[Rfam]
Mammalian CPEB3 ribozyme: a 75-nucleotide RNA from Crocodylus porosus.
Lineage of the source: Eukaryota > Eumetazoa > Teleostomi > Amniota > Crocodylus.
A search with the family's covariance model found it, with a score of 49 bits.
RNA sequence: UUGGAAGUUUAAAGCCAUAGCAGAAGCACUCAUGGUGUGGUCCUGCCAGAUUCCAAUGAAUCUGUAAAUUCUGCU
Numbered sequence: 001u002u003g004g005a006a007g008u009u010u011a012a013a014g015c016c017a018u019a020g021c022a023g024a025a026g027c028a029c030u031c032a033u034g035g036u037g038u039g040g041u042c043c044u045g046c047c048a049g050a051u052u053c054c055a056a057u058g059a060a061u062c063u064g065u066a067a068a069u070u071c072u073g074c075u
Stems, first nucleotide, its partner, number of pairs: 014042001015040002019075007026038003047064007